Rfam assigns this 86-nucleotide RNA from Beta vulgaris to the family "Small nucleolar RNA R11/Z151".
[Rfam]
RNA sequence: UGGCUGAGGAUGAUAAUUACAUUUAUCUUAGCGGAUUUCAGUGAGAUUGAUAAUCUAUGAUCUGAUUGUUACACACACUGAAGCCG
Numbered sequence: 001u002g003g004c005u006g007a008g009g010a011u012g013a014u015a016a017u018u019a020c021a022u023u024u025a026u027c028u029u030a031g032c033g034g035a036u037u038u039c040a041g042u043g044a045g046a047u048u049g050a051u052a053a054u055c056u057a058u059g060a061u062c063u064g065a066u067u068g069u070u071a072c073a074c075a076c077a078c079u080g081a082a083g084c085c086g
Base pairs, nucleotide, nucleotide: 001086002085003084004083005082
The family's RNA type in Rfam is C/D-box small nucleolar RNA.
The source organism's lineage runs through Eukaryota, Viridiplantae, Embryophyta, Pentapetalae and Beta vulgaris.
The match comes from Rfam's covariance-model search (77 bits).
Its family is annotated with nucleolus and RNA processing in the Gene Ontology.
Pairs were carried over by alignment from the consensus structure, which was predicted with PFOLD.